[Rfam]
Nucleotides: 121
Stems, first nucleotide, its partner, number of pairs: 003115001012106005019059003023055001026052004034045003064089011090098002
Number, partner (000 for none) and nucleotide at each position: 001000a002000a003115a004000g005000a006000a007000a008000u009000g010000u011000c012106u013105c014104u015103c016102c017000g018000a019059g020058u021057c022000u023055a024000c025000u026052c027051g028050c029049c030000u031000a032000a033000a034045a035044g036043g037000u038000a039000a040000u041000a042000a043036c044035c045034u046000c047000a048000u049029g050028g051027c052026g053000u054000u055023u056000u057021g058020g059019c060000c061000a062000a063000c064089g065088g066087g067086u068085a069084u070083u071082g072081c073080c074079g075000g076000a077000a078000a079074c080073g081072g082071c083070a084069a085068u086067g087066c088065c089064u090098c091097c092000c093000u094000u095000u096000u097091g098090g099000a100000a101000a102016g103015g104014a105013g106012a107000a108000c109000c110000u111000g112000c113000u114000g115003u116000c117000c118000c119000g120000g121000a
Shown here is a 121-nucleotide RNA sequence from Geobacter sp. OR-1, a member of the family "Molybdenum/Tungsten riboswitch aptamer (Moco RNA motif)". The base pairs follow the family's consensus structure, which is taken from published work. The organism belongs to Geobacter, within Bacteria.